[Rfam]
RNA: rpsB sRNA
RNA sequence: CACACAUGGACUUUGGUGUCUGUCCGGGAGAAAUCCGGCGGAAACCUCCGGUGGCGGUGAGGUCAGACCAUCUGAACAGCUCUGCUUUCAGGCCGGUUUGCCGAAAUCGUCAAGUGUCCGUGGAGGUCAACCGGAAAGGAAAUGA
Numbered sequence: 001c002a003c004a005c006a007u008g009g010a011c012u013u014u015g016g017u018g019u020c021u022g023u024c025c026g027g028g029a030g031a032a033a034u035c036c037g038g039c040g041g042a043a044a045c046c047u048c049c050g051g052u053g054g055c056g057g058u059g060a061g062g063u064c065a066g067a068c069c070a071u072c073u074g075a076a077c078a079g080c081u082c083u084g085c086u087u088u089c090a091g092g093c094c095g096g097u098u099u100g101c102c103g104a105a106a107u108c109g110u111c112a113a114g115u116g117u118c119c120g121u122g123g124a125g126g127u128c129a130a131c132c133g134g135a136a137a138g139g140a141a142a143u144g145a
Stems, first nucleotide, its partner, number of pairs: 001125001003123001005122007015046002025037002028035001053111006